Shown here is a 76-nucleotide RNA from Xiphorhynchus elegans, a member of the family "Small nucleolar RNA R38". Pairs were carried over by alignment from the consensus structure, which was predicted with PFOLD. Gene Ontology terms of the family: RNA processing and nucleolus. Rfam classes the family as a C/D-box small nucleolar RNA. Rfam describes the family as follows. snoR38 is a C/D box small nucleolar RNA conserved across yeast, human, Arabidopsis and rice. It is encoded in the intron of elongation factor-1 gamma in both pombe and cerevisiae. snoR38 guides the methylation of 2'-O-ribose sites in 28S rRNA. The match comes from Rfam's covariance-model search (54 bits). The family has 19 seed sequences and 2,295 matches in Rfam 15.1.
[Rfam]
RNA sequence: CUGAGCUGGUGAUGAUAAAAGUUAUCCCUGUCUGAAUCGGGUGUUCCCUCUGUGGAAGUGUCGCUCUGAGGCUCAG
Numbered sequence: 001c002u003g004a005g006c007u008g009g010u011g012a013u014g015a016u017a018a019a020a021g022u023u024a025u026c027c028c029u030g031u032c033u034g035a036a037u038c039g040g041g042u043g044u045u046c047c048c049u050c051u052g053u054g055g056a057a058g059u060g061u062c063g064c065u066c067u068g069a070g071g072c073u074c075a076g
Stems, first nucleotide, its partner, number of pairs: 001076007